This 118-nucleotide RNA sequence from Paenibacillus sp. Root444D2 belongs to the Rfam family "Bacillus sRNA ncr1015". Lineage of the source: Bacteria > Bacillati > Bacillota > Bacilli > Paenibacillus. For this family Rfam cites "Identification of regulatory RNAs in Bacillus subtilis" (Irnov et al., Nucleic Acids Res, 2010). A search with the family's covariance model found it, with a score of 111 bits.
[Rfam]
RNA sequence: UUGUAAGAUGAAAUAAUUAUGUCCAAUUAACUUGUCAAAGUCGUAAUCUGAUUAUAUCAUCGUGUCUGUUUAUAUGCAAUAAAAAGAACCUGAUAAAGCUACUCAGGUUCUUUUUUGA
Dot-bracket structure: .................................((.((.(.((.................))..)...)).))........((((((((((((.........))))))))))))....